[Rfam]
RNA: mir-218 microRNA precursor family
Nucleotides: 075
Stems, first nucleotide, its partner, number of pairs: 002074003006070004013063004018058002024052008
Number, partner (000 for none) and nucleotide at each position: 001000c002074g003073u004072c005000c006070c007069u008068g009067c010000c011000u012000u013063g014062u015061g016060c017000u018058u019057g020000a021000u022000c023000u024052a025051a026050c027049c028048a029047u030046g031045u032000g033000c034000u035000g036000c037000c038000c039000c040000a041000a042000a043000c044000a045031a046030c047029a048028u049027g050026g051025u052024u053000u054000g055000u056000u057019c058018a059000u060016g061015c062014a063013c064000c065000a066000g067009g068008u069007a070006g071000a072004g073003g074002c075000a